[Rfam]
Nucleotides: 366
Stems, first nucleotide, its partner, number of pairs: 001362008010353001011316007019039008044350003048347005053217004060251004065213005070084005085099001086097004100208002105206002107202003122147002124143008155173006175197001176195008221273004231264006243255004280299008
Number, partner (000 for none) and nucleotide at each position: 001362g002361g003360a004359g005358a006357c007356g008355g009000c010353c011316g012315a013314u014313g015312a016311u017310c018000g019039c020038c021037g022036g023035a024034c025033g026032a027000u028000a029000u030000u031000u032026u033025u034024g035023u036022c037021c038020g039019g040000a041000g042000g043000a044350a045349a046348g047000u048347c049346c050345g051344g052343g053217c054216u055215c056214c057000a058000c059000a060251g061250g062249g063248c064000g065213g066212g067211g068210u069209g070084g071083u072082c073081c074080g075000u076000a077000a078000c079000g080074c081073g082072g083071a084070c085099c086097g087096g088095g089094g090000g091000u092000g093000a094089c095088c096087c097086c098000a099085g100208g101207g102000a103000a104000a105206g106205u107202g108201c109200c110000a111000c112000a113000g114000a115000a116000a117000a118000u119000a120000u121000a122147c123146c124143g125142c126141c127140g128139g129138g130137c131136a132000c133000u134000u135000g136131u137130g138129c139128c140127c141126g142125g143124u144000a145000a146123g147122g148000g149000u150000g151000a152000a153000a154000a155173g156172g157171u158170g159169a160168g161000g162000u163000a164000a165000g166000a167000g168160c169159u170158c171157a172156c173155c174000a175197g176195u177194u178193g179192c180191g181190g182189c183188g184000g185000u186000g187000a188183c189182g190181u191180c192179g193178c194177a195176g196000g197175c198000u199000u200109g201108g202107u203000a204000a205106a206105c207101c208100c209069c210068a211067u212066c213065c214056g215055g216054a217053g218000c219000a220000a221273g222272a223271c224270c225000a226000a227000a228000u229000a230000g231264g232263g233262g234261a235260g236259c237000a238000c239000u240000u241000g242000a243255g244254a245253g246252u247000g248063g249062c250061c251060c252246g253245c254244u255243c256000g257000a258000a259236g260235c261234u262233c263232c264231c265000g266000g267000g268000u269000a270224g271223g272222u273221c274000g275000c276000u277000u278000g279000a280299g281298g282297u283296g284295u285294c286293g287292a288000g289000c290000a291000a292287u293286c294285g295284a296283c297282g298281u299280c300000c301000c302000a303000g304000a305000u306000g307000a308000a309000u310017g311016a312015u313014c314013a315012u316011c317000a318000c319000c320000u321000u322000g323000g324000c325000u326000u327000u328000a329000c330000c331000a332000a333000g334000g335000g336000a337000a338000c339000a340000g341000a342000a343052c344051c345050c346049g347048g348046c349045u350044u351000a352000u353010g354000a355008c356007u357006g358005u359004c360003u361002c362001c363000a364000a365000a366000g